[Rfam]
Shown here is an 80-nucleotide sequence from Anguilla anguilla, a member of the family "mir-219 microRNA precursor family". NCBI's taxonomy places the organism under Eukaryota, Metazoa, Neopterygii, Anguilliformes, Anguilla. Rfam links the family to the GO terms miRNA-mediated post-transcriptional gene silencing and RISC complex. The family has 92 seed sequences and 1,318 matches in Rfam 15.1. Pairs were carried over by alignment from the consensus structure, which was predicted with RNAalifold. On this family, see Lim et al., Science 2003: "Vertebrate microRNA genes".

RNA sequence: UCCGGGGCUGAUUGUCCAAACGCAAUUCUUGUGUCUACCUCUACAAAAUCAGGAGUUGUGGAUGGACAUCACGCCCCUGA
Numbered sequence: 001u002c003c004g005g006g007g008c009u010g011a012u013u014g015u016c017c018a019a020a021c022g023c024a025a026u027u028c029u030u031g032u033g034u035c036u037a038c039c040u041c042u043a044c045a046a047a048a049u050c051a052g053g054a055g056u057u058g059u060g061g062a063u064g065g066a067c068a069u070c071a072c073g074c075c076c077c078u079g080a
Stems, first nucleotide, its partner, number of pairs: 002079001004077004009071004014067005021060011